[Rfam]
RNA sequence: AUAAGGCAAGAUGUUGGCAUAGCUGAACAUAAUAAUGGUUAGGCUCAUAAUUCAGAGUCUAAUCAAUUUGCAUACGGUCUCAGCCGUGCCACAUUAGGCCAU
Numbered sequence: 001a002u003a004a005g006g007c008a009a010g011a012u013g014u015u016g017g018c019a020u021a022g023c024u025g026a027a028c029a030u031a032a033u034a035a036u037g038g039u040u041a042g043g044c045u046c047a048u049a050a051u052u053c054a055g056a057g058u059c060u061a062a063u064c065a066a067u068u069u070g071c072a073u074a075c076g077g078u079c080u081c082a083g084c085c086g087u088g089c090c091a092c093a094u095u096a097g098g099c100c101a102u
Stems, first nucleotide, its partner, number of pairs: 005100003011094004016090003022084005
The record is a 102-nucleotide RNA from Cercopithifilaria johnstoni, which matches "mir-72 microRNA precursor family" in Rfam. Rfam 15.1 lists 75 matches to the family in 67 species. The family is grouped with related families in Rfam's "mir-31 microRNA precursor family".